[Rfam]
RNA sequence: UUAAUCAGCUUUUUAAAGGCUACAUGCAGAACUUAAACUGCUUAAGUGAUGGAAUUCUACAUAGAAGCGCUAUGGGCAAUAUGGCGCAAAUGUAUAUAUAAGGUUUUUGAUUUAUUACUAGCUGGAAAGUUAGGGAUAAAACUUAAAACUUAUAUUUCACAUUUUGCAUAGAAUGUUAGGUAAACAAAUUAAGACAGACGCUUGUAAGAAUUGCCCUCUUACAAGUGUUUU
Numbered sequence: 001u002u003a004a005u006c007a008g009c010u011u012u013u014u015a016a017a018g019g020c021u022a023c024a025u026g027c028a029g030a031a032c033u034u035a036a037a038c039u040g041c042u043u044a045a046g047u048g049a050u051g052g053a054a055u056u057c058u059a060c061a062u063a064g065a066a067g068c069g070c071u072a073u074g075g076g077c078a079a080u081a082u083g084g085c086g087c088a089a090a091u092g093u094a095u096a097u098a099u100a101a102g103g104u105u106u107u108u109g110a111u112u113u114a115u116u117a118c119u120a121g122c123u124g125g126a127a128a129g130u131u132a133g134g135g136a137u138a139a140a141a142c143u144u145a146a147a148a149c150u151u152a153u154a155u156u157u158c159a160c161a162u163u164u165u166g167c168a169u170a171g172a173a174u175g176u177u178a179g180g181u182a183a184a185c186a187a188a189u190u191a192a193g194a195c196a197g198a199c200g201c202u203u204g205u206a207a208g209a210a211u212u213g214c215c216c217u218c219u220u221a222c223a224a225g226u227g228u229u230u231u
Stems, first nucleotide, its partner, number of pairs: 001053002004050004026041004032193005054174006067087007074216007088164006197229013
A member of the RNA family "FuFi-1 RNA" from Amedibacterium intestinale, 231 nucleotides long. The family's consensus secondary structure is taken from published work.